[Rfam]
RNA sequence: GUAAGAAUCAUCGCCCCGACGAAGAGGGGUUUAAAAC
Numbered sequence: 001g002u003a004a005g006a007a008u009c010a011u012c013g014c015c016c017c018g019a020c021g022a023a024g025a026g027g028g029g030u031u032u033a034a035a036a037c
Base pairs, nucleotide, nucleotide: 014029015028016027017026
RNA: CRISPR RNA direct repeat element